The family of this 163-nucleotide RNA from Macrostomum lignano is "U1 spliceosomal RNA". It scores 152 bits against the family's covariance model. The organism belongs to Macrostomum, within Eukaryota. The literature on the family includes a 1997 paper in Nucleic Acids Res by Zwieb, "The uRNA database". The family's RNA type in Rfam is spliceosomal small nuclear RNA. Pairs were carried over by alignment from the consensus structure, which is taken from published work.
[Rfam]
RNA sequence: AUACUUACCUGGCGCGGGGGAUACCGUGAUCAAGAAGGCGGUGCCUCCAGGACGAGGCCUGUACAUUGCACUCCGUAUGGGCUGACUCCUGCGACUACCCCAAAUCGGGGUGGCUCGAGCGCAUAAUUUUUGGUAGUGGGGACAAGCGUUCGCGCUGUCCCUU
Number, nucleotide and partner (000 for none) at each position: 001a000002u000003a000004c000005u000006u000007a000008c000009c000010u000011g000012g122013c121014g120015c119016g048017g047018g046019g045020g044021a000022u000023a042024c041025c040026g039027u038028g000029a000030u000031c000032a000033a000034g000035a000036a000037g000038g027039c026040g025041g024042u023043g000044c020045c019046u018047c017048c016049a090050g089051g088052a087053c000054g086055a000056g083057g082058c081059c000060u079061g078062u077063a076064c075065a000066u000067u000068g000069c000070a000071c000072u000073c000074c000075g064076u063077a062078u061079g060080g000081g058082c057083u056084g000085a000086c054087u052088c051089c050090u049091g000092c117093g116094a115095c113096u112097a111098c000099c109100c108101c000102a000103a000104a000105u000106c000107g000108g100109g099110g000111u097112g096113g095114c000115u094116c093117g092118a000119g015120c014121g013122c012123a000124u000125a000126a000127u000128u000129u000130u000131u000132g000133g000134u000135a000136g000137u000138g162139g161140g160141g159142a158143c000144a000145a156146g155147c154148g153149u000150u000151c000152g000153c148154g147155c146156u145157g000158u142159c141160c140161c139162u138163u000